[Rfam]
RNA sequence: UAACCAUCCAGAGCGGCUGAGAGACCUGGCUCGUUGACGCCGCAGCAACCACCUCGUUUCGAGGAAGGUGCUAACGCCAGGACCGAUGGAGA
Numbered sequence: 001u002a003a004c005c006a007u008c009c010a011g012a013g014c015g016g017c018u019g020a021g022a023g024a025c026c027u028g029g030c031u032c033g034u035u036g037a038c039g040c041c042g043c044a045g046c047a048a049c050c051a052c053c054u055c056g057u058u059u060c061g062a063g064g065a066a067g068g069u070g071c072u073a074a075c076g077c078c079a080g081g082a083c084c085g086a087u088g089g090a091g092a
Stems, first nucleotide, its partner, number of pairs: 001092001004089005013043005021032003026080004044072004049068002052064003076084001
The record is a 92-nucleotide sequence from Crystallibacter crystallopoietes, which matches "SAM riboswitch aptamer (S box leader)" in Rfam. The literature on the family includes a 2003 paper in Nat Struct Biol by Winkler et al., "An mRNA structure that controls gene expression by binding S-adenosylmethionine". Its Rfam clan is "SAM clan".